[Rfam]
RNA sequence: CACCGACAUCAGCGAUUCGUUUUUCGAACCCUGACCCACCGCCAGAUACGCAUUCAUUCCCAGCUCUUUCAUCUGCUGCUCGCCGAUAACGCGGGUCGUGAUGUUGGUGCUGAACGCAUCUGCCAGCUGACGGGCCUGUGACGCCAGAUAGGCAGCGUUACAGAUGUUCGGUGGCAUAUUGCCGAGAUCUUUCGC
Number, nucleotide and partner (000 for none) at each position: 001c000002a000003c000004c000005g189006a188007c000008a000009u000010c000011a000012g032013c000014g030015a000016u028017u027018c026019g025020u000021u000022u000023u000024u000025c019026g018027a017028a016029c000030c014031c000032u012033g043034a000035c041036c000037c000038a000039c000040c000041g035042c000043c033044a000045g000046a000047u000048a000049c000050g059051c000052a000053u000054u000055c000056a000057u000058u000059c050060c000061c000062a077063g076064c075065u000066c000067u000068u000069u000070c000071a000072u000073c000074u000075g064076c063077u062078g135079c134080u133081c132082g131083c000084c129085g128086a000087u126088a000089a000090c000091g123092c122093g121094g120095g119096u118097c000098g000099u112100g111101a000102u109103g108104u000105u000106g000107g000108u103109g102110c000111u100112g099113a000114a000115c000116g000117c000118a096119u095120c094121u093122g092123c091124c000125a000126g087127c000128u085129g084130a000131c082132g081133g080134g079135c078136c163137u162138g161139u000140g159141a158142c157143g156144c155145c000146a000147g000148a000149u000150a000151g000152g000153c000154a000155g144156c143157g142158u141159u140160a000161c138162a137163g136164a000165u000166g000167u186168u185169c184170g183171g182172u181173g000174g000175c000176a000177u000178a000179u000180u000181g172182c171183c170184g169185a168186g167187a000188u006189c005190u000191u000192u000193c000194g000195c000
RNA: Yersinia sRNA 276
Organism: Rahnella aquatilis